A member of the RNA family "R2 RNA element" from Drosophila persimilis, 151 nucleotides long.
The base pairs follow the family's consensus structure, which is taken from published work.
This family represents the 3' UTR region of the R2 retrotransposable element.
A reference for the family is Ruschak et al. (2004), "Secondary structure models of the 3' untranslated regions of diverse R2 RNAs", RNA.
NCBI's taxonomy places the organism under Eukaryota, Protostomia, Panarthropoda, Endopterygota, Sophophora.
RNA sequence: ACUUUACUUAUUUUCAUUUGUAGUAUUUUUUGCUUAUUUUUAAAUUCAUAAAAUGGAGGUGUUUAGUCCGAAGGCGUAAUUGAAUUACGAAUCGGGCAUAUCUUUAGCGCCUGCGCUAAAGAUAUCUUUGGAAGAUUCACCGGCCAGAGUC
Numbered sequence: 001a002c003u004u005u006a007c008u009u010a011u012u013u014u015c016a017u018u019u020g021u022a023g024u025a026u027u028u029u030u031u032g033c034u035u036a037u038u039u040u041u042a043a044a045u046u047c048a049u050a051a052a053a054u055g056g057a058g059g060u061g062u063u064u065a066g067u068c069c070g071a072a073g074g075c076g077u078a079a080u081u082g083a084a085u086u087a088c089g090a091a092u093c094g095g096g097c098a099u100a101u102c103u104u105u106a107g108c109g110c111c112u113g114c115g116c117u118a119a120a121g122a123u124a125u126c127u128u129u130g131g132a133a134g135a136u137u138c139a140c141c142g143g144c145c146a147g148a149g150u151c
Base pairs, nucleotide, nucleotide: 001024002023003022032150033149034148035147054146055145056144058141059140060139066097067096068095069094070093075089076088077087078086079085080084099124100123101122102121103120104119
Dot-bracket structure: (((..................))).......((((..................(((.(((.....(((((....((((((...))))))...))))).((((((..............))))))..............)))..))))))).